[Rfam]
RNA sequence: AAGAAAUGAUGAGAUGCAUCUUCAGGUCCGUGUUUUUGAUGAAAGUGAUAGUAAUUGAAGAUCUGAUCUU
Numbered sequence: 001a002a003g004a005a006a007u008g009a010u011g012a013g014a015u016g017c018a019u020c021u022u023c024a025g026g027u028c029c030g031u032g033u034u035u036u037u038g039a040u041g042a043a044a045g046u047g048a049u050a051g052u053a054a055u056u057g058a059a060g061a062u063c064u065g066a067u068c069u070u
Base pairs, nucleotide, nucleotide: 001070002069003068004067
Shown here is a 70-nucleotide RNA sequence from Lingula anatina, a member of the family "Small nucleolar RNA SNORD18". The source organism's lineage runs through Eukaryota, Opisthokonta, Eumetazoa, Lophotrochozoa and Lingula. Rfam links the family to the GO terms RNA processing and nucleolus. For this family Rfam cites "Two different snoRNAs are encoded in introns of amphibian and human L1 ribosomal protein genes" (Prislei et al., Nucleic Acids Res, 1993).